[Rfam]
This 223-nucleotide sequence from Aurantimonas sp. 22II-16-19i belongs to the Rfam family "permuted transfer-messenger RNA". Bacterial tmRNA, also known as 10Sa RNA or SsrA, is named for its dual tRNA and mRNA-like properties. For this family Rfam cites "BRUCE: a program for the detection of transfer-messenger RNA genes in nucleotide sequences" (Laslett et al., Nucleic Acids Res, 2002). Taxonomically the source falls in Aurantimonas (Bacteria, Pseudomonadota, Alphaproteobacteria, Hyphomicrobiales). The match comes from Rfam's covariance-model search (149 bits).

RNA sequence: GGCGAUAAACGUUCGUUGGAAUAAGCCUUUCGGACCCGGGGGCGGUACCCGGCGCCUCCACCCGAUGCCACGGUCGCGGCAAGCGAUCCUGGCAUGCGGCGGGGGCGAAAUAGGAUCGACGAGGGUGUAAAGAGCGAAUUUUUGCUCGGCAUGGUUCCGCCGUUAUCGGGCCGAAAAAGUAGUUGCCAACGACAACUAUGCGGAAGCACGUCUCGCAGCGUAA
Numbered sequence: 001g002g003c004g005a006u007a008a009a010c011g012u013u014c015g016u017u018g019g020a021a022u023a024a025g026c027c028u029u030u031c032g033g034a035c036c037c038g039g040g041g042g043c044g045g046u047a048c049c050c051g052g053c054g055c056c057u058c059c060a061c062c063c064g065a066u067g068c069c070a071c072g073g074u075c076g077c078g079g080c081a082a083g084c085g086a087u088c089c090u091g092g093c094a095u096g097c098g099g100c101g102g103g104g105g106c107g108a109a110a111u112a113g114g115a116u117c118g119a120c121g122a123g124g125g126u127g128u129a130a131a132g133a134g135c136g137a138a139u140u141u142u143u144g145c146u147c148g149g150c151a152u153g154g155u156u157c158c159g160c161c162g163u164u165a166u167c168g169g170g171c172c173g174a175a176a177a178a179g180u181a182g183u184u185g186c187c188a189a190c191g192a193c194a195a196c197u198a199u200g201c202g203g204a205a206g207c208a209c210g211u212c213u214c215g216c217a218g219c220g221u222a223a
Stems, first nucleotide, its partner, number of pairs: 001146005014136004026125003030122003036052005053107007147162004